[Rfam]
Nucleotides: 139
Base pairs, nucleotide, nucleotide: 003063004062005061006060007059014050015049016048077136078135079134080133083130084129085128086126088125089124092115093114094113097110098109099108100107
Number, partner (000 for none) and nucleotide at each position: 001000u002000a003063c004062u005061g006060u007059g008000u009000u010000c011000u012000c013000u014050g015049g016048g017000c018000c019000u020000c021000a022000a023000u024000u025000u026000u027000c028000u029000c030000a031000c032000c033000a034000a035000g036000a037000a038000a039000a040000u041000a042000a043000a044000g045000g046000g047000a048016c049015c050014c051000u052000u053000c054000c055000u056000a057000g058000c059007c060006a061005u062004g063003g064000a065000a066000g067000a068000g069000c070000a071000u072000u073000u074000u075000c076000u077136u078135g079134u080133u081000u082000a083130u084129u085128g086126g087000c088125a089124a090000a091000g092115c093114u094113g095000u096000c097110a098109c099108c100107a101000u102000u103000u104000a105000a106000u107100u108099g109098g110097u111000a112000u113094c114093a115092g116000a117000u118000u119000c120000u121000g122000a123000c124089u125088u126086c127000a128085c129084a130083a131000g132000u133080a134079a135078c136077a137000u138000u139000c